A member of the RNA family "Plant signal recognition particle RNA" from Musa acuminata, 307 nucleotides long. By type it is a non-coding RNA gene. Its family is annotated with SRP-dependent cotranslational protein targeting to membrane, signal sequence recognition and signal recognition particle, endoplasmic reticulum targeting in the Gene Ontology. Taxonomically the source falls in Musa acuminata (Eukaryota, Viridiplantae, Petrosaviidae, Zingiberales).
[Rfam]
RNA sequence: GCCGAGCCCGGUAGCGUGGGCUUGUAACCCGAGCGGGAGCCUUGAGGCGGUGGGAUGGUGUGUUUAACUCGACUGGGUUGGGUGCGACCGUACUAUACUCGGCUUGUCCGUUCCAAGUCAGGCAGCUGAGCCGUGCGGCCCGGGCGAAGGCUCGAGCUUCUUAGGAUCCUAAAGCGGAGGACACCGCGUCAGGCUGGCUUCACAGAGCAGCGACCACCUCCCGCUCUUGACGGUGGAGGGAUAACAGGCCGGUGUACGCCGCACUCACCGUACCCACAGGGUUAACGCCUAUCAAACCACCACCUUU
Numbered sequence: 001g002c003c004g005a006g007c008c009c010g011g012u013a014g015c016g017u018g019g020g021c022u023u024g025u026a027a028c029c030c031g032a033g034c035g036g037g038a039g040c041c042u043u044g045a046g047g048c049g050g051u052g053g054g055a056u057g058g059u060g061u062g063u064u065u066a067a068c069u070c071g072a073c074u075g076g077g078u079u080g081g082g083u084g085c086g087a088c089c090g091u092a093c094u095a096u097a098c099u100c101g102g103c104u105u106g107u108c109c110g111u112u113c114c115a116a117g118u119c120a121g122g123c124a125g126c127u128g129a130g131c132c133g134u135g136c137g138g139c140c141c142g143g144g145c146g147a148a149g150g151c152u153c154g155a156g157c158u159u160c161u162u163a164g165g166a167u168c169c170u171a172a173a174g175c176g177g178a179g180g181a182c183a184c185c186g187c188g189u190c191a192g193g194c195u196g197g198c199u200u201c202a203c204a205g206a207g208c209a210g211c212g213a214c215c216a217c218c219u220c221c222c223g224c225u226c227u228u229g230a231c232g233g234u235g236g237a238g239g240g241a242u243a244a245c246a247g248g249c250c251g252g253u254g255u256a257c258g259c260c261g262c263a264c265u266c267a268c269c270g271u272a273c274c275c276a277c278a279g280g281g282u283u284a285a286c287g288c289c290u291a292u293c294a295a296a297c298c299a300c301c302a303c304c305u306u307u
Stems, first nucleotide, its partner, number of pairs: 001040002004023007028037003044306004049301005056294002060289001061287004066282001068281003075275004080266007088258001090257003094254002099252009108240002111238005117231006124225003128168002131165002135160001137158003141154005169174001176221005187212003194205003